[Rfam]
RNA sequence: UUUAUAUCAAAUAUUUCUUUUCGUAUAACCUCAAUAAUUGGUUUGAGGGUAUCUACUAGGGACCGUAAAUUCCUGACUACGAAAGGGUUUUCUUGUGAU
Numbered sequence: 001u002u003u004a005u006a007u008c009a010a011a012u013a014u015u016u017c018u019u020u021u022c023g024u025a026u027a028a029c030c031u032c033a034a035u036a037a038u039u040g041g042u043u044u045g046a047g048g049g050u051a052u053c054u055a056c057u058a059g060g061g062a063c064c065g066u067a068a069a070u071u072c073c074u075g076a077c078u079a080c081g082a083a084a085g086g087g088u089u090u091u092c093u094u095g096u097g098a099u
Base pairs, nucleotide, nucleotide: 018085019084020083021082022081023080024079025078029048030047031046032045033044034043057075058074059073060072061071062070

About this RNA:
The record is a 99-nucleotide sequence from Cytobacillus dafuensis, which matches "Purine riboswitch aptamer" in Rfam. The family's consensus secondary structure is taken from published work. Taxonomically the source falls in Cytobacillus (Bacteria, Bacillati, Bacilli, Bacillaceae). A search with the family's covariance model found it, with a score of 76 bits.